[Rfam]
RNA sequence: UCAUUAGUGAGGUAUAUCCUUACCUGUUUAUCUCUACCAGAGAUUUACAGAACAUGAUGAGCGGAGAUCUCAUGAGAUAUGAUUAUGUCUCCGUCCUGGCUGGGCGCAACAACCCACCAGGACCCGUUCUGAU
Numbered sequence: 001u002c003a004u005u006a007g008u009g010a011g012g013u014a015u016a017u018c019c020u021u022a023c024c025u026g027u028u029u030a031u032c033u034c035u036a037c038c039a040g041a042g043a044u045u046u047a048c049a050g051a052a053c054a055u056g057a058u059g060a061g062c063g064g065a066g067a068u069c070u071c072a073u074g075a076g077a078u079a080u081g082a083u084u085a086u087g088u089c090u091c092c093g094u095c096c097u098g099g100c101u102g103g104g105c106g107c108a109a110c111a112a113c114c115c116a117c118c119a120g121g122a123c124c125c126g127u128u129c130u131g132a133u
Base pairs, nucleotide, nucleotide: 024050025049026048028047030044031043032042033041034040074091075090077088078087079086080085095121096120097119098118099117102114103113

U8 small nucleolar RNA: a 133-nucleotide RNA sequence from Merluccius polli.
On this family, see Peculis, Mol Cell Biol 1997: "The sequence of the 5' end of the U8 small nucleolar RNA is critical for 5.8S and 28S rRNA maturation".
The family's consensus secondary structure is taken from published work.
The family's RNA type in Rfam is C/D-box small nucleolar RNA.
The match comes from Rfam's covariance-model search (84 bits).